This 75-nucleotide sequence from Patiria miniata belongs to the Rfam family "mir-196 microRNA precursor family". The match comes from Rfam's covariance-model search (57 bits).
[Rfam]
RNA sequence: CAAGUCAACAAGGAAAUGUCAUGUUGUCGAGGGCAUAUUAUGCCCUCGACAACAUGACAUUUCCUUGUUGACAGU
Numbered sequence: 001c002a003a004g005u006c007a008a009c010a011a012g013g014a015a016a017u018g019u020c021a022u023g024u025u026g027u028c029g030a031g032g033g034c035a036u037a038u039u040a041u042g043c044c045c046u047c048g049a050c051a052a053c054a055u056g057a058c059a060u061u062u063c064c065u066u067g068u069u070g071a072c073a074g075u
Base pairs, nucleotide, nucleotide: 004072005071006070007069008068009067010066011065012064013063014062015061016060017059018058019057022054023053024052025051026050027049028048029047030046031045
For this family Rfam cites "New microRNAs from mouse and human" (Lagos-Quintana et al., RNA, 2003).